[Rfam]
RNA: Plastid-psbA-1 3UTR RNA
RNA sequence: UGUCGACGUUCCAUCUACAAAUGGAUAAGACUUCGCUUUGGUAUUAGUGGAUACGAGUUCUUGAAAAUAAAGGAGCAAUAACAAAUUUCUUGUUCUAUCAAGAAGUUUGUUAUUGCGCCUUUAU
Numbered sequence: 001u002g003u004c005g006a007c008g009u010u011c012c013a014u015c016u017a018c019a020a021a022u023g024g025a026u027a028a029g030a031c032u033u034c035g036c037u038u039u040g041g042u043a044u045u046a047g048u049g050g051a052u053a054c055g056a057g058u059u060c061u062u063g064a065a066a067a068u069a070a071a072g073g074a075g076c077a078a079u080a081a082c083a084a085a086u087u088u089c090u091u092g093u094u095c096u097a098u099c100a101a102g103a104a105g106u107u108u109g110u111u112a113u114u115g116c117g118c119c120u121u122u123a124u
Stems, first nucleotide, its partner, number of pairs: 010025005069122005075116007083108003087104005